[Rfam]
RNA sequence: GGUCAGUGAUGUCAUGGCAUGUAUUAGCUGAAUGCUAACCUGAUGCAAGUUACAAAUUACACUGAGACCUU
Dot-bracket structure: ((((.............................................................))))..
A member of the RNA family "Small nucleolar RNA SNORD45", 71 nucleotides long. On this family, see Huttenhofer et al., EMBO J 2001: "RNomics: an experimental approach that identifies 201 candidates for novel, small, non-messenger RNAs in mouse".